[Rfam]
Plastid-ccsA-ndhD-1 3UTR RNA: a 46-nucleotide RNA sequence from Sarcobatus vermiculatus. The family has 488 seed sequences and 1,322 matches in Rfam 15.1. It is annotated as a cis-regulatory element. About the family: Plastid-ccsA-ndhD-1 is a non-coding RNA (ncRNA) recognised in plastids. It was found in the three prime untranslated region (3UTR) of ccsA and ndhD genes, its 3UTR location suggests a role in transcript maturation. The base pairs follow the family's consensus structure, which was predicted with LocARNA.
RNA sequence: GUGAGAACCAUUUAAAUCAAGUAGUAUAAUGAUUUAAAUGGUUCUC
Numbered sequence: 001g002u003g004a005g006a007a008c009c010a011u012u013u014a015a016a017u018c019a020a021g022u023a024g025u026a027u028a029a030u031g032a033u034u035u036a037a038a039u040g041g042u043u044c045u046c
Stems, first nucleotide, its partner, number of pairs: 003046016